The record is a 163-nucleotide RNA, which matches "DUF2693 RNA" in Rfam.
Pairs were carried over by alignment from the consensus structure, which is taken from published work.
It is one of the family's seed sequences.
[Rfam]
RNA sequence: GAUCUUUGACAUACUUGAUAUAAACAAUGGCGAUACGAAUUAAUCUGCGGGUGCAAGGCCCGCGAGUGAUUAACCCAUUGUCGUUAGUCUUUGGCCUAUUGCGCAAAGAGCGAAGCCGUGGAAGGCACGGAAGCCCCGAGGGUCGCAACCCUCCUGACGACAC
Numbered sequence: 001g002a003u004c005u006u007u008g009a010c011a012u013a014c015u016u017g018a019u020a021u022a023a024a025c026a027a028u029g030g031c032g033a034u035a036c037g038a039a040u041u042a043a044u045c046u047g048c049g050g051g052u053g054c055a056a057g058g059c060c061c062g063c064g065a066g067u068g069a070u071u072a073a074c075c076c077a078u079u080g081u082c083g084u085u086a087g088u089c090u091u092u093g094g095c096c097u098a099u100u101g102c103g104c105a106a107a108g109a110g111c112g113a114a115g116c117c118g119u120g121g122a123a124g125g126c127a128c129g130g131a132a133g134c135c136c137c138g139a140g141g142g143u144c145g146c147a148a149c150c151c152u153c154c155u156g157a158c159g160a161c162a163c
Stems, first nucleotide, its partner, number of pairs: 047063005080161008088109006116130005138153004
It is annotated as a small RNA.